[Rfam]
RNA sequence: GGUAGGCGGUUUCUCCGUUUGCCUGUUUUGCUGAUGUACAUCUGACUCAUUCUCAGCAAAAUAAGUAAAUGGAAAACUCACCUAUC
Numbered sequence: 001g002g003u004a005g006g007c008g009g010u011u012u013c014u015c016c017g018u019u020u021g022c023c024u025g026u027u028u029u030g031c032u033g034a035u036g037u038a039c040a041u042c043u044g045a046c047u048c049a050u051u052c053u054c055a056g057c058a059a060a061a062u063a064a065g066u067a068a069a070u071g072g073a074a075a076a077c078u079c080a081c082c083u084a085u086c
Stems, first nucleotide, its partner, number of pairs: 001086006008079002011076002014073009024063011
The family of this 86-nucleotide sequence from Trichechus manatus is "mir-1468 microRNA precursor family". Lineage of the source: Eukaryota > Opisthokonta > Eumetazoa > Mammalia > Trichechus manatus.